The family of this 95-nucleotide RNA from Legionella spiritensis is "RAGATH-13 RNA".
The literature on the family includes a 2015 paper in Nat Chem Biol by Weinberg et al., "New classes of self-cleaving ribozymes revealed by comparative genomics analysis".
By type it is a ribozyme.
The family has 20 seed sequences and 49 matches in Rfam 15.1.
The source organism's lineage runs through Bacteria, Pseudomonadati, Gammaproteobacteria, Legionellales and Legionella.
[Rfam]
RNA sequence: AUUGAUUUGCCCCCUGUAUCGAGCUUUAUGGCAUCUGCCAGGUAUCGCCUUUGAGUGAGCCGCUCGACCAACACUAAACCAAAGACAGGGCAAAU
Numbered sequence: 001a002u003u004g005a006u007u008u009g010c011c012c013c014c015u016g017u018a019u020c021g022a023g024c025u026u027u028a029u030g031g032c033a034u035c036u037g038c039c040a041g042g043u044a045u046c047g048c049c050u051u052u053g054a055g056u057g058a059g060c061c062g063c064u065c066g067a068c069c070a071a072c073a074c075u076a077a078a079c080c081a082a083a084g085a086c087a088g089g090g091c092a093a094a095u
Stems, first nucleotide, its partner, number of pairs: 005095008019067006029040004041061003045058002